[Rfam]
RNA sequence: UUGAAUUGAGUAGCGCAUGGGCCGGGCAGUCGGAGGGUGCCACGGUUGACGAGGUGGAGGCCGUUCGGAGCGGUGUUGGCAAUAAAGAUCUUAUUCGCCAGCAUUAGCAGGUCAGCGGGGAGCCUCCAGGGGUGAUCACGCUCCUGAGAAGGAUAUGUCCAAUGCCUAUCGGUAACGAGCAGGACAAAGCAUAUUCGGUGAUGACG
Number, nucleotide and partner (000 for none) at each position: 001u000002u000003g000004a000005a000006u000007u000008g000009a000010g000011u000012a000013g000014c000015g000016c000017a000018u000019g000020g047021g046022c045023c044024g043025g000026g041027c000028a000029g038030u000031c000032g000033g000034a000035g000036g000037g000038u029039g000040c000041c026042a000043c024044g023045g022046u021047u020048g000049a000050c000051g000052a000053g000054g000055u000056g000057g126058a125059g124060g123061c122062c000063g000064u000065u000066c115067g000068g113069a112070g000071c000072g000073g000074u000075g000076u000077u000078g000079g000080c000081a000082a000083u000084a000085a000086a000087g000088a000089u000090c000091u000092u000093a000094u000095u000096c000097g000098c000099c000100a000101g000102c000103a000104u000105u000106a000107g000108c000109a000110g000111g000112u069113c068114a000115g066116c000117g000118g000119g000120g000121a000122g061123c060124c059125u058126c057127c146128a145129g144130g143131g142132g141133u000134g000135a000136u000137c000138a000139c000140g000141c132142u131143c130144c129145u128146g127147a000148g000149a000150a000151g196152g195153a194154u193155a192156u191157g190158u000159c000160c000161a000162a000163u000164g000165c182166c000167u000168a000169u178170c177171g176172g000173u000174a000175a000176c171177g170178a169179g000180c000181a000182g165183g000184a000185c000186a000187a000188a000189g000190c157191a156192u155193a154194u153195u152196c151197g000198g000199u000200g000201a000202u000203g000204a000205c000206g000
A member of the RNA family "glmS glucosamine-6-phosphate activated ribozyme aptamer" from Tengunoibacter tsumagoiensis, 206 nucleotides long. The literature on the family includes a 2006 paper in Biochemistry by Hampel and Tinsley, "Evidence for preorganization of the glmS ribozyme ligand binding pocket". Gene Ontology terms of the family: regulation of gene expression and catalytic activity. This entry contains a glucosamine-6-phosphate activated ribozyme that is found in the mRNA for GlmS. GlmS is an enzyme that uses fructose-6-phosphate and glutamine to generate glucosamine-6-phosphate. Lineage of the source: Bacteria > Chloroflexota > Ktedonobacterales > Dictyobacteraceae > Tengunoibacter.